[Rfam]
RNA sequence: CCCUGUAUCGAAAGGUGAUGGCAGCCUCCCUGUGGCUGCCGUCAUUAUUAAUACAGGCAGAUAAAGCUGAGAGCUUUCCCGUGUUUGAAGGAGCGCCGCUUCCUCUCAGACCCUGACGCUCUCAGACA
Numbered sequence: 001c002c003c004u005g006u007a008u009c010g011a012a013a014g015g016u017g018a019u020g021g022c023a024g025c026c027u028c029c030c031u032g033u034g035g036c037u038g039c040c041g042u043c044a045u046u047a048u049u050a051a052u053a054c055a056g057g058c059a060g061a062u063a064a065a066g067c068u069g070a071g072a073g074c075u076u077u078c079c080c081g082u083g084u085u086u087g088a089a090g091g092a093g094c095g096c097c098g099c100u101u102c103c104u105c106u107c108a109g110a111c112c113c114u115g116a117c118g119c120u121c122u123c124a125g126a127c128a
Stems, first nucleotide, its partner, number of pairs: 002057007014046008023037004068124007083111005089104004
The family of this 128-nucleotide RNA sequence from Cyprinodon variegatus is "Small nucleolar RNA SNORA71". The family's RNA type in Rfam is H/ACA-box small nucleolar RNA. The members of this family belong to the H/ACA class of snoRNAs which bind a number of proteins (including dyskerin, Gar1p and Nop10p) to form snoRNP complexes. This class of snoRNAs are thought to guide the sites of modification of uridines to pseudouridines by forming direct base pairing interactions with substrate RNAs. The match comes from Rfam's covariance-model search (84 bits). For this family Rfam cites "The family of box ACA small nucleolar RNAs is defined by an evolutionarily conserved secondary structure and ubiquitous sequence elements essential for RNA accumulation" (Ganot et al., Genes Dev, 1997).